[Rfam]
RNA: SAM riboswitch aptamer (S box leader)
RNA sequence: UUCUUAUCCAGAGAGGUGGAGGGACUGGCCCUUUGAAGCCUCGGCAGCGGACUCAUUUUGAGUACUGUGCCAAUUCCAGUAGCAUUUGCUAGAAGAUAAGAA
Numbered sequence: 001u002u003c004u005u006a007u008c009c010a011g012a013g014a015g016g017u018g019g020a021g022g023g024a025c026u027g028g029c030c031c032u033u034u035g036a037a038g039c040c041u042c043g044g045c046a047g048c049g050g051a052c053u054c055a056u057u058u059u060g061a062g063u064a065c066u067g068u069g070c071c072a073a074u075u076c077c078a079g080u081a082g083c084a085u086u087u088g089c090u091a092g093a094a095g096a097u098a099a100g101a102a
Stems, first nucleotide, its partner, number of pairs: 001102008013042005021031003025079004043071004048067002051063004075094001080091004